[Rfam]
Shown here is a 252-nucleotide sequence from Propionispora vibrioides, a member of the family "raiA RNA".
NCBI's taxonomy places the organism under Bacteria, Bacillati, Bacillota, Selenomonadales, Propionispora.
RNA sequence: CUUGCUUAGGUCUGUGGUUGAAAGUCGAUGCCAGUCGCAGGCGAAACGAUCCACGUAAGGAGUUUAAAUAAGCUCUGAGCAUGGUGCGGCUUAGGGGUAAGACCUGCCGGAUGAAAGCUGGGAGGCAGGUGAGUACUCACUCUCACCGUUUCAUGCUUUAUCCGAGAGGAGUAGUAGUGAGGGGAUUGAAUUCCUAGUAGCGAACCUUCCGGCAGGCGAGUGUGGGGUCAAAGACCAGGUCGGCUAAGCAAG
Numbered sequence: 001c002u003u004g005c006u007u008a009g010g011u012c013u014g015u016g017g018u019u020g021a022a023a024g025u026c027g028a029u030g031c032c033a034g035u036c037g038c039a040g041g042c043g044a045a046a047c048g049a050u051c052c053a054c055g056u057a058a059g060g061a062g063u064u065u066a067a068a069u070a071a072g073c074u075c076u077g078a079g080c081a082u083g084g085u086g087c088g089g090c091u092u093a094g095g096g097g098u099a100a101g102a103c104c105u106g107c108c109g110g111a112u113g114a115a116a117g118c119u120g121g122g123a124g125g126c127a128g129g130u131g132a133g134u135a136c137u138c139a140c141u142c143u144c145a146c147c148g149u150u151u152c153a154u155g156c157u158u159u160a161u162c163c164g165a166g167a168g169g170a171g172u173a174g175u176a177g178u179g180a181g182g183g184g185a186u187u188g189a190a191u192u193c194c195u196a197g198u199a200g201c202g203a204a205c206c207u208u209c210c211g212g213c214a215g216g217c218g219a220g221u222g223u224g225g226g227g228u229c230a231a232a233g234a235c236c237a238g239g240u241c242g243g244c245u246a247a248g249c250a251a252g
Stems, first nucleotide, its partner, number of pairs: 001252009012243003015237005028223003031041001033091007050084002058076003063071002082230001103216005108164008168209004177201002183194003